[Rfam]
RNA sequence: CCGUGCUAGACGGGGAGGUAGCGGUGCCCUGUAACUCGCAAUCCGCUGUAGCGAGGUUGAAUUCCUGUCUGAGGUUGUGCCAUGCGGGGCUGGUUUUUAGGAACGGUGUUGACGGUUUGGUCCUCCGCAAUGAACGCUUGUGAACUCGGUCAGGUCCGGAAGGAAGCAGCCGUAAGCGGGUACGUUCAUGUGCCGGGGGAGUGCCUGACCAGAGCCGGAAAUAAAAUUGCCGCCCGGGUUGCACGUAUCGAAGACAGGUGCGCGG
Numbered sequence: 001c002c003g004u005g006c007u008a009g010a011c012g013g014g015g016a017g018g019u020a021g022c023g024g025u026g027c028c029c030u031g032u033a034a035c036u037c038g039c040a041a042u043c044c045g046c047u048g049u050a051g052c053g054a055g056g057u058u059g060a061a062u063u064c065c066u067g068u069c070u071g072a073g074g075u076u077g078u079g080c081c082a083u084g085c086g087g088g089g090c091u092g093g094u095u096u097u098u099a100g101g102a103a104c105g106g107u108g109u110u111g112a113c114g115g116u117u118u119g120g121u122c123c124u125c126c127g128c129a130a131u132g133a134a135c136g137c138u139u140g141u142g143a144a145c146u147c148g149g150u151c152a153g154g155u156c157c158g159g160a161a162g163g164a165a166g167c168a169g170c171c172g173u174a175a176g177c178g179g180g181u182a183c184g185u186u187c188a189u190g191u192g193c194c195g196g197g198g199g200a201g202u203g204c205c206u207g208a209c210c211a212g213a214g215c216c217g218g219a220a221a222u223a224a225a226a227u228u229g230c231c232g233c234c235c236g237g238g239u240u241g242c243a244c245g246u247a248u249c250g251a252a253g254a255c256a257g258g259u260g261c262g263c264g265g
Stems, first nucleotide, its partner, number of pairs: 001265006009058003012030004017025001019023001035055005064258007073249003079242002082239002085236004092231002095226005104218001105216003114210004119205003122199006128190002131188005136181006147172004155164003
The family of this 265-nucleotide sequence from Paenibacillus nasutitermitis is "Bacterial large signal recognition particle RNA". Pairs were carried over by alignment from the consensus structure, which is taken from published work. It is annotated as a non-coding RNA gene. It scores 203 bits against the family's covariance model. Lineage of the source: Bacteria > Bacillati > Bacillota > Caryophanales > Paenibacillus. Rfam links the family to the GO terms SRP-dependent cotranslational protein targeting to membrane, signal sequence recognition and signal recognition particle, plasma membrane targeting. From the family's description: The signal recognition particle (SRP) is a universally conserved ribonucleoprotein involved in the co-translational targeting of proteins to membranes.